The record is a 48-nucleotide RNA, which matches "ssNA-helicase RNA" in Rfam. Rfam's curators put it in the seed alignment. Rfam classes the family as a small RNA.
RNA sequence: UUCCAUAAGGAUAGUAUUACCCUUAUGGAAGCACGUGUAGCAGUAGCA
Dot-bracket structure: ((((((((((..........))))))))))..................